[Rfam]
RNA: U7 small nuclear RNA
RNA sequence: GAGUGUGACAAUUCUUUUAGAAUUUAUCUAACAGGGUUUCCAGUUUUCACUGGAUACCAUC
Numbered sequence: 001g002a003g004u005g006u007g008a009c010a011a012u013u014c015u016u017u018u019a020g021a022a023u024u025u026a027u028c029u030a031a032c033a034g035g036g037u038u039u040c041c042a043g044u045u046u047u048c049a050c051u052g053g054a055u056a057c058c059a060u061c
Stems, first nucleotide, its partner, number of pairs: 035058003039054006